[Rfam]
RNA sequence: AAACCGCAUCCGUAAGUCCUGGACCGGCUGCUCUUGCGUAAGCAGGUGAUACUCCGUCUCUGAACGGUGAGAAUCGGCCCCCAGGGUGGAGCGGUUU
Numbered sequence: 001a002a003a004c005c006g007c008a009u010c011c012g013u014a015a016g017u018c019c020u021g022g023a024c025c026g027g028c029u030g031c032u033c034u035u036g037c038g039u040a041a042g043c044a045g046g047u048g049a050u051a052c053u054c055c056g057u058c059u060c061u062g063a064a065c066g067g068u069g070a071g072a073a074u075c076g077g078c079c080c081c082c083a084g085g086g087u088g089g090a091g092c093g094g095u096u097u
Base pairs, nucleotide, nucleotide: 001097002096003095004094005093006092007091009090010089011088012087018085019084020083021082022081026079027078028077033046034045035044036043037042
RNA: DUF3800-III RNA